[Rfam]
RNA sequence: GAUUAGCUAUUGUAUUGGUGACUGCUUAUCAAGUUUUUUGAUCUAUAACUUGAUUGAUUCGGAUACCGAUAGAUUUCUAGUGGUAGUAAACCGAGCGCGUACUCGGAAACAGAAACAGAAACGUUGGCUUCCCCCUGGUUUUCCAGGUCAUAAACUGAAGUAAAACGGUACAACGGUUAAUCU
Number, nucleotide and partner (000 for none) at each position: 001g000002a181003u180004u179005a178006g177007c176008u175009a000010u173011u172012g171013u170014a169015u168016u000017g000018g166019u165020g000021a000022c000023u000024g000025c000026u000027u000028a000029u000030c000031a000032a000033g000034u000035u154036u153037u152038u000039u150040g149041a148042u147043c146044u145045a000046u000047a000048a000049c000050u000051u000052g000053a000054u000055u000056g000057a000058u000059u000060c000061g132062g131063a130064u000065a000066c127067c126068g125069a124070u123071a000072g122073a000074u121075u120076u119077c118078u117079a000080g116081u115082g000083g000084u000085a000086g110087u109088a000089a000090a000091c106092c105093g104094a103095g102096c000097g000098c000099g000100u000101a000102c095103u094104c093105g092106g091107a000108a000109a087110c086111a000112g000113a000114a000115a081116c080117a078118g077119a076120a075121a074122c072123g070124u069125u068126g067127g066128c000129u000130u063131c062132c061133c000134c000135c000136u000137g000138g000139u000140u000141u000142u000143c000144c000145a044146g043147g042148u041149c040150a039151u000152a037153a036154a035155c000156u000157g000158a000159a000160g000161u000162a000163a000164a000165a019166c018167g000168g015169u014170a013171c012172a011173a010174c000175g008176g007177u006178u005179a004180a003181u002182c000183u000
This 183-nucleotide sequence from Cyanobacterium sp. T60_A2020_053 belongs to the Rfam family "6S / SsrS RNA".
NCBI's taxonomy places the organism under Bacteria, Cyanophyceae, Oscillatoriophycideae, Geminocystaceae, Cyanobacterium.
Rfam classes the family as a non-coding RNA gene.
Rfam describes the family as follows. E. coli 6S RNA was the first non coding RNA to be sequenced, but its function was unknown until recently. It consists of 184 nucleotides that fold into an extended hairpin structure with a large single-stranded internal bulge. The 6S RNA specifically associates with RNA polymerase holoenzyme containing the sigma70 specificity factor.